[Rfam]
RNA sequence: GAUCGCCUUCGGGGUAGGGUGAAAUUCCCAACCGGCGGUGAUGAGUUUAUACUCUAAGCCCGUGACCCGACUUAUAGAAAUAUAAGGCGGUGGAUUUGGUGAGAAACCAAAGCCGACAGUAAAGUCUGGAUGGGAGAAGGAAUAG
Numbered sequence: 001g002a003u004c005g006c007c008u009u010c011g012g013g014g015u016a017g018g019g020u021g022a023a024a025u026u027c028c029c030a031a032c033c034g035g036c037g038g039u040g041a042u043g044a045g046u047u048u049a050u051a052c053u054c055u056a057a058g059c060c061c062g063u064g065a066c067c068c069g070a071c072u073u074a075u076a077g078a079a080a081u082a083u084a085a086g087g088c089g090g091u092g093g094a095u096u097u098g099g100u101g102a103g104a105a106a107c108c109a110a111a112g113c114c115g116a117c118a119g120u121a122a123a124g125u126c127u128g129g130a131u132g133g134g135a136g137a138a139g140g141a142a143u144a145g
Base pairs, nucleotide, nucleotide: 006140007139008138009137010136017029018028019027031125032124033115034114035063036062037061038060058113059112067090068089095111096110097109098108099107117128118127119126
Description
FMN riboswitch aptamer (RFN element): a 145-nucleotide RNA sequence from Niallia nealsonii. The family's consensus secondary structure is taken from published work. The organism belongs to Niallia, within Bacteria. Its family is annotated with FMN binding in the Gene Ontology.